Description:
The record is a 229-nucleotide part of an RNA from Pseudoxanthobacter soli, which matches "Bacterial large subunit ribosomal RNA" in Rfam. The source organism's lineage runs through Bacteria, Pseudomonadati, Pseudomonadota, Alphaproteobacteria and Pseudoxanthobacter soli.
[Rfam]
RNA sequence: GACUUAAUUUAACGAGCGAGCUUAAGCCGGUAGGUGUAGGCGCAGCGAAAGCGAGUCCGAAUAGGGCGACUAAGUUCGUUGGAUUAGACCCGAAACCGGGUGAUCUAGCCAUGAGCAGGCUGAAGGCAAGGUAACACUUGCUGGAGGGCCGAACCGGUGAAUGUUGCAAAAUUCUCGGAUGACUUGUGGCUAGGGGUGAAAGGCCAACCAAACUCGGUAAUAGCUGGUU
Numbered sequence: 001g002a003c004u005u006a007a008u009u010u011a012a013c014g015a016g017c018g019a020g021c022u023u024a025a026g027c028c029g030g031u032a033g034g035u036g037u038a039g040g041c042g043c044a045g046c047g048a049a050a051g052c053g054a055g056u057c058c059g060a061a062u063a064g065g066g067c068g069a070c071u072a073a074g075u076u077c078g079u080u081g082g083a084u085u086a087g088a089c090c091c092g093a094a095a096c097c098g099g100g101u102g103a104u105c106u107a108g109c110c111a112u113g114a115g116c117a118g119g120c121u122g123a124a125g126g127c128a129a130g131g132u133a134a135c136a137c138u139u140g141c142u143g144g145a146g147g148g149c150c151g152a153a154c155c156g157g158u159g160a161a162u163g164u165u166g167c168a169a170a171a172u173u174c175u176c177g178g179a180u181g182a183c184u185u186g187u188g189g190c191u192a193g194g195g196g197u198g199a200a201a202g203g204c205c206a207a208c209c210a211a212a213c214u215c216g217g218u219a220a221u222a223g224c225u226g227g228u229u
Stems, first nucleotide, its partner, number of pairs: 005086013020041004026035003045052002055067004089227002092224001096217006105193011116181001118150004125142006154178003159174004195205003